Nucleotides: 057
Base pairs, nucleotide, nucleotide: 003057004056005055007052008051009050010049015046016045018043019042020041021040022039023038
Number, partner (000 for none) and nucleotide at each position: 001000c002000u003057g004056g005055u006000u007052c008051c009050g010049g011000u012000u013000c014000a015046c016045g017000c018043u019042c020041u021040c022039g023038c024000g025000a026000c027000a028000a029000c030000a031000c032000a033000g034000g035000a036000c037000u038023g039022c040021g041020g042019g043018a044000a045016c046015g047000a048000c049010c050009c051008g052007g053000c054000g055005a056004c057003c